[Rfam]
Description:
This 84-nucleotide RNA from Variovorax sp. PDC80 belongs to the Rfam family "Glycine riboswitch aptamer". Rfam 15.1 lists 9,425 matches to the family in 5,228 species.
RNA sequence: UCGCCCGGGUCAGGAGAGAGCCCCGCACGGGGCCGCCGAAGGCGCAGGGAACCCCCGAACGCUCAGGCAAAAGGACUGACACAG
Numbered sequence: 001u002c003g004c005c006c007g008g009g010u011c012a013g014g015a016g017a018g019a020g021c022c023c024c025g026c027a028c029g030g031g032g033c034c035g036c037c038g039a040a041g042g043c044g045c046a047g048g049g050a051a052c053c054c055c056c057g058a059a060c061g062c063u064c065a066g067g068c069a070a071a072a073g074g075a076c077u078g079a080c081a082c083a084g
Stems, first nucleotide, its partner, number of pairs: 007082001009080005020033004035068003038064002042062003048056002

The base pairs follow the family's consensus structure. Lineage of the source: Bacteria > Pseudomonadota > Burkholderiales > Comamonadaceae > Variovorax.